RNA sequence: UUGUGCUGGCCUAUGCUUUCUCUGCUCUCCCUGUACUCUGUUGUAACAGGGAAGUUUGCAGGAUACACAGCAGUCUCCCUCUCGGUUUAGGAGGGCUGUCUGAGUAUAGGGCUGCCUCUUAAAGGCACGAGAGGACAAU
Numbered sequence: 001u002u003g004u005g006c007u008g009g010c011c012u013a014u015g016c017u018u019u020c021u022c023u024g025c026u027c028u029c030c031c032u033g034u035a036c037u038c039u040g041u042u043g044u045a046a047c048a049g050g051g052a053a054g055u056u057u058g059c060a061g062g063a064u065a066c067a068c069a070g071c072a073g074u075c076u077c078c079c080u081c082u083c084g085g086u087u088u089a090g091g092a093g094g095g096c097u098g099u100c101u102g103a104g105u106a107u108a109g110g111g112c113u114g115c116c117u118c119u120u121a122a123a124g125g126c127a128c129g130a131g132a133g134g135a136c137a138a139u
Stems, first nucleotide, its partner, number of pairs: 002065003006061003010058001024055003029051006078134006085126004091120005097114001098112003101108002
RNA: Small Cajal body specific RNA 11
Organism: Phyllostomus discolor